RNA sequence: UUGCCGGUGCAAGUCCGGUCCGGGUAACUGCCAGGAGGCCCGGUAGCAGGCUGGCGGCAUCGGGGGGAAACGCCCGGUGUCGAAGCCCAGCGUCAAAAGCCCUUCAAGGGGGAGCAACCGAGUGGUCCGUAGCAUCA
Numbered sequence: 001u002u003g004c005c006g007g008u009g010c011a012a013g014u015c016c017g018g019u020c021c022g023g024g025u026a027a028c029u030g031c032c033a034g035g036a037g038g039c040c041c042g043g044u045a046g047c048a049g050g051c052u053g054g055c056g057g058c059a060u061c062g063g064g065g066g067g068a069a070a071c072g073c074c075c076g077g078u079g080u081c082g083a084a085g086c087c088c089a090g091c092g093u094c095a096a097a098a099g100c101c102c103u104u105c106a107a108g109g110g111g112g113a114g115c116a117a118c119c120g121a122g123u124g125g126u127c128c129g130u131a132g133c134a135u136c137a
Stems, first nucleotide, its partner, number of pairs: 020043005050091005055082006064073001066071001100112004119129002
Annotation: The record is a 137-nucleotide RNA from Rhodococcus jostii, which matches "Group II catalytic intron D1-D4-4" in Rfam. Rfam's curators put it in the seed alignment. On this family, see Bonen and Vogel, Trends Genet 2001: "The ins and outs of group II introns". Group II introns are found in rRNA, tRNA and mRNA of organelles in fungi, plants and protists, and also in mRNA in bacteria. The base pairs follow the family's consensus structure. Taxonomically the source falls in Rhodococcus jostii (Bacteria, Actinomycetota, Actinomycetes, Nocardiaceae).